[Rfam]
RNA sequence: AACGAAAAAUGGCAAACUUACCGAAAGGUAAGGACGCAAAGUUAUAGGGUCUAAUGUCCGCCGGCUUCAUGGCGAACGAAUGACAGCCUGACUGCCGAA
Number, nucleotide and partner (000 for none) at each position: 001a000002a000003c000004g000005a000006a000007a000008a000009a000010u000011g000012g037013c036014a000015a000016a000017c032018u031019u030020a029021c028022c027023g000024a000025a000026a000027g022028g021029u020030a019031a018032g017033g000034a000035c000036g013037c012038a000039a000040a093041g092042u091043u090044a000045u000046a089047g088048g087049g084050u083051c082052u000053a000054a000055u000056g000057u000058c000059c000060g000061c000062c000063g000064g000065c000066u000067u000068c000069a000070u000071g000072g000073c000074g000075a000076a000077c000078g000079a000080a000081u000082g051083a050084c049085a000086g000087c048088c047089u046090g043091a042092c041093u040094g000095c000096c000097g000098a000099a000